[Rfam]
RNA: 6S / SsrS RNA
Organism: Ammoniphilus oxalaticus
RNA sequence: UGAUUCCUGCGAUGUUCGUAGCAUUUUUAUGUUUCGAACCUUAAAUUUUGUUUCGGGAUUCCGAUAUUUGAUUUGUGGACGUUAUGCCCGCGCUGCGGGAAAGCGGAAAUGAACGUGAGGAGACCCACCUGUCGAGCGCAGGUUAUGAAACAAACUAAUGUUACGGCAUACGCGGGAUUUUA
Dot-bracket structure: .((.(((((((((((.(((...........((((..((((..............(((.((((...(.....(((((.....((...((((.....))))..)).....)))))..)..)))).)))..............))))...))))...........))))))).))))))).))..